[Rfam]
RNA sequence: GAAUAUCUUCAGGGUAGGGUGUAAUUCCCAACCGGCGGUAAUCAUCUUUAGAUGUAGUCCCGCAACCCACAAUAUGUGGUUGAUUAGGUGUGAUUCCUAAACCGACAGUAAGCUAACUCGUUAGCAAGUCUGGUAUAAAGAAGAAAGAA
Dot-bracket structure: ...(.(((((......(((.......)))...((((((.....................))))...((.........))....(((((.......)))))..)).(((.....................))).......))))).)...
Shown here is a 149-nucleotide RNA sequence from Weissella soli, a member of the family "FMN riboswitch aptamer (RFN element)". The match comes from Rfam's covariance-model search (86 bits). About the family: The RFN element is a highly conserved domain that is found frequently in the 5'-untranslated regions of prokaryotic mRNAs that encode for flavin mononucleotide (FMN) biosynthesis and transport proteins.